[Rfam]
RNA sequence: GCAUUAAGGUGAUGUGGACGCUGUUGUAGCGUUGCGGGCCUGGUUUGGGUGUGCUACUGCCGGCCCACCCGUUCCAAGUUGCGUAGUGGACCGCUUGGGGCCUAUGCGAAAGCUGGGUCUCACGGUCCAUAAUGUGGCAGGCACAGCGUGAGGCUGGCUUCACAGAGCAGCGACAACUGCCCGCUUUCAACGGUGGAAGGAUAACGGGCCGCUGCACUCCUAGGCCACUUGGGCCUCGCAGCCUAUUCUAGUGAACCAUCACUUUU
Numbered sequence: 001g002c003a004u005u006a007a008g009g010u011g012a013u014g015u016g017g018a019c020g021c022u023g024u025u026g027u028a029g030c031g032u033u034g035c036g037g038g039c040c041u042g043g044u045u046u047g048g049g050u051g052u053g054c055u056a057c058u059g060c061c062g063g064c065c066c067a068c069c070c071g072u073u074c075c076a077a078g079u080u081g082c083g084u085a086g087u088g089g090a091c092c093g094c095u096u097g098g099g100g101c102c103u104a105u106g107c108g109a110a111a112g113c114u115g116g117g118u119c120u121c122a123c124g125g126u127c128c129a130u131a132a133u134g135u136g137g138c139a140g141g142c143a144c145a146g147c148g149u150g151a152g153g154c155u156g157g158c159u160u161c162a163c164a165g166a167g168c169a170g171c172g173a174c175a176a177c178u179g180c181c182c183g184c185u186u187u188c189a190a191c192g193g194u195g196g197a198a199g200g201a202u203a204a205c206g207g208g209c210c211g212c213u214g215c216a217c218u219c220c221u222a223g224g225c226c227a228c229u230u231g232g233g234c235c236u237c238g239c240a241g242c243c244u245a246u247u248c249u250a251g252u253g254a255a256c257c258a259u260c261a262c263u264u265u266u
Stems, first nucleotide, its partner, number of pairs: 006265009016256001019253005026246004032241007040233002042226008051217003055214002061211006069200002072198005078191004083187001085185003088128006096122009106113002136181005147172003154165003
Rfam assigns this 266-nucleotide RNA sequence from Triticum turgidum to the family "Plant signal recognition particle RNA". On this family, see Regalia et al., Nucleic Acids Res 2002: "Prediction of signal recognition particle RNA genes". Its family is annotated with signal recognition particle, endoplasmic reticulum targeting and SRP-dependent cotranslational protein targeting to membrane, signal sequence recognition in the Gene Ontology. It is annotated as a non-coding RNA gene. A search with the family's covariance model found it, with a score of 167 bits.